[Rfam]
RNA sequence: UCCAUGCUGGGCUUGGAGCCUGCUUAAGAUUCUCUCUCCUCUCCCUCUGCCCUCUCCCACAUCCCUCUCUAAAAAUUUUUUUUUUUUUUUUAGAGAGGGAUGUGGGAGAGGGCAGAGGAGAGGAGAGAGAAUCUUAAGCAGGCUCCAAGCCCAGCAUGGA
Dot-bracket structure: .((.((((((.(((((((.(((((((((((((((....(((..((((.((((((((((((.((.(((.(((((((...........))))))).))).)).)))))))))))).))))....))).))))))))))))))).))))))).)))))).)).
Rfam assigns this 160-nucleotide RNA from Ursus americanus to the family "MIR7725 microRNA precursor family". The family has 2 seed sequences and 30 matches in Rfam 15.1. Gene Ontology terms of the family: miRNA-mediated post-transcriptional gene silencing and RISC complex.